[Rfam]
Shown here is a 190-nucleotide sequence from Halanaerobium salsuginis, a member of the family "Group II catalytic intron D1-D4-5". The family has 139 seed sequences and 720 matches in Rfam 15.1. From the family's description: Group II introns are found in rRNA, tRNA and mRNA of organelles in fungi, plants and protists, and also in mRNA in bacteria.
RNA sequence: UAGAACUAAAAGCUGAAUCAGCCAAAUGAGAGAGUAACGUCUUGAAGGGCUGUCGUUAAUACUCCGAAUUGCAUUGAUUUGAUUAAGCGGAUUAAUGUAAUAAGCUCGGUGAAGUCGGGUGAGAGUUACCGUAAUUAUACGAAAGUUAUCUUAGUAGGAUAAUGUAACCUAUAGCUCGGACGCCUGUAAA
Numbered sequence: 001u002a003g004a005a006c007u008a009a010a011a012g013c014u015g016a017a018u019c020a021g022c023c024a025a026a027u028g029a030g031a032g033a034g035u036a037a038c039g040u041c042u043u044g045a046a047g048g049g050c051u052g053u054c055g056u057u058a059a060u061a062c063u064c065c066g067a068a069u070u071g072c073a074u075u076g077a078u079u080u081g082a083u084u085a086a087g088c089g090g091a092u093u094a095a096u097g098u099a100a101u102a103a104g105c106u107c108g109g110u111g112a113a114g115u116c117g118g119g120u121g122a123g124a125g126u127u128a129c130c131g132u133a134a135u136u137a138u139a140c141g142a143a144a145g146u147u148a149u150c151u152u153a154g155u156a157g158g159a160u161a162a163u164g165u166a167a168c169c170u171a172u173a174g175c176u177c178g179g180a181c182g183c184c185u186g187u188a189a190a
Base pairs, nucleotide, nucleotide: 019052020051021050022049023048031043032042034040054182055181056180057179064109065108066107067106068101069100070099071098072097073096074095075094076093077092078091079090080089081088116178117177118176119175120174125168126167127166128165129164130141131140132139145163146162147161148160149159150158151157152156